[Rfam]
RNA: TPP riboswitch aptamer (THI element)
Organism: Naasia lichenicola
RNA sequence: UCGAGGAAACACGGGAGUCCGGUGAGCCGGGCUGAGAGGAAGCUGAUCCAAGCUUCGACCGUCGAACCUGAUCUGGAUAAUGCCAGCGCAGGGAGGCAGCUCAAUCCCGUGC
Numbered sequence: 001u002c003g004a005g006g007a008a009a010c011a012c013g014g015g016a017g018u019c020c021g022g023u024g025a026g027c028c029g030g031g032c033u034g035a036g037a038g039g040a041a042g043c044u045g046a047u048c049c050a051a052g053c054u055u056c057g058a059c060c061g062u063c064g065a066a067c068c069u070g071a072u073c074u075g076g077a078u079a080a081u082g083c084c085a086g087c088g089c090a091g092g093g094a095g096g097c098a099g100c101u102c103a104a105u106c107c108c109g110u111g112c
Stems, first nucleotide, its partner, number of pairs: 006100001010096001011062004017032005039056005067092004073086004